Shown here is a 117-nucleotide RNA sequence from Streptomyces sp. BR123, a member of the family "SAM (S-adenosyl methionine) riboswitch aptamer".
Clan: SAM clan.
RNA sequence: GGUCACGAGUGACAGCGUUCUGGCCCCGGCUUGCUGUCCGGCAACCCUCCUUCCGUGGCGGGGUGCCCCGGGUGAUGACCAGGCCGCGGGCAGCGAGGUCCGCGGCAAGCGCGGAUC
Numbered sequence: 001g002g003u004c005a006c007g008a009g010u011g012a013c014a015g016c017g018u019u020c021u022g023g024c025c026c027c028g029g030c031u032u033g034c035u036g037u038c039c040g041g042c043a044a045c046c047c048u049c050c051u052u053c054c055g056u057g058g059c060g061g062g063g064u065g066c067c068c069c070g071g072g073u074g075a076u077g078a079c080c081a082g083g084c085c086g087c088g089g090g091c092a093g094c095g096a097g098g099u100c101c102g103c104g105g106c107a108a109g110c111g112c113g114g115a116u117c
Stems, first nucleotide, its partner, number of pairs: 001080004009039001011038006022031002040067003045063003049058002083106009